[Rfam]
RNA sequence: UGGGGUAUCGCCAAGCGGUAAGGCAUCAGGUUUUGGUCCUGACAUUCAGAGGUUCGAAUCCUCUUACCCCAU
Numbered sequence: 001u002g003g004g005g006u007a008u009c010g011c012c013a014a015g016c017g018g019u020a021a022g023g024c025a026u027c028a029g030g031u032u033u034u035g036g037u038c039c040u041g042a043c044a045u046u047c048a049g050a051g052g053u054u055c056g057a058a059u060c061c062u063c064u065u066a067c068c069c070c071a072u
Base pairs, nucleotide, nucleotide: 001071002070003069004068005067006066007065010024011023012022026042027041028040029039030038048064049063050062051061052060
Dot-bracket structure: (((((((..(((.........))).(((((.......))))).....(((((.......)))))))))))).